[Rfam]
RNA: Plastid-rpl20 3UTR RNA
Organism: Musa balbisiana
Nucleotides: 082
Stems, first nucleotide, its partner, number of pairs: 007030005013024003065078004
Number, partner (000 for none) and nucleotide at each position: 001000a002000c003000a004000g005000a006000a007030u008029u009028c010027c011026c012000g013024g014023a015022g016000a017000a018000g019000g020000a021000a022015c023014u024013c025000g026011g027010g028009g029008a030007a031000a032000c033000u034000a035000g036000a037000a038000u039000a040000a041000a042000a043000a044000u045000a046000a047000a048000g049000a050000a051000g052000a053000u054000a055000g056000u057000a058000c059000u060000a061000g062000a063000a064000u065078g066077a067076a068075c069000g070000g071000a072000a073000u074000u075068g076067u077066u078065u079000c080000a081000a082000u